[Rfam]
RNA sequence: UACUGUCAGCAGCAGCGCAGAAGUAAGGGUGGCAAUACACCAUCCUGCGCCACCCUUAUUUCUGUGCUGCUGCUGGCAGUG
Number, nucleotide and partner (000 for none) at each position: 001u081002a080003c079004u000005g077006u076007c075008a000009g000010c000011a071012g070013c069014a068015g067016c066017g065018c064019a000020g061021a000022a060023g059024u058025a057026a056027g055028g054029g053030u000031g000032g000033c000034a000035a000036u000037a000038c000039a000040c000041c000042a000043u000044c000045c000046u000047g000048c000049g000050c000051c000052a000053c029054c028055c027056u026057u025058a024059u023060u022061u020062c000063u000064g018065u017066g016067c015068u014069g013070c012071u011072g000073c000074u000075g007076g006077c005078a000079g003080u002081g001
The family of this 81-nucleotide RNA from Mauremys mutica is "mir-16 microRNA precursor family".
Its Rfam clan is "mir-15 clan".
The organism belongs to Mauremys, within Eukaryota.
The literature on the family includes a 2020 paper in Mol Cell by Jin et al., "Structural Basis for pri-miRNA Recognition by Drosha".
Gene Ontology terms of the family: RISC complex and miRNA-mediated post-transcriptional gene silencing.